[Rfam]
RNA sequence: AAAGUACAGUGUUAAGAUAAAAAGUUGUUUUACAUUCAGAUCUUGAUCUCCACACAAACAUCCCACAGCUGAAGAGUAAGUUGGGAUCACAGUAUUGGUCUAGUGUUGUCUCAUUGGACAUAAUUUACCACUGGCCAGCCUCCAAAUUCCCAUACAGGA
Numbered sequence: 001a002a003a004g005u006a007c008a009g010u011g012u013u014a015a016g017a018u019a020a021a022a023a024g025u026u027g028u029u030u031u032a033c034a035u036u037c038a039g040a041u042c043u044u045g046a047u048c049u050c051c052a053c054a055c056a057a058a059c060a061u062c063c064c065a066c067a068g069c070u071g072a073a074g075a076g077u078a079a080g081u082u083g084g085g086a087u088c089a090c091a092g093u094a095u096u097g098g099u100c101u102a103g104u105g106u107u108g109u110c111u112c113a114u115u116g117g118a119c120a121u122a123a124u125u126u127a128c129c130a131c132u133g134g135c136c137a138g139c140c141u142c143c144a145a146a147u148u149c150c151c152a153u154a155c156a157g158g159a
Stems, first nucleotide, its partner, number of pairs: 010056003013052001016048003020044002023041001025039003030034001082152005095138006102132004107122003111118002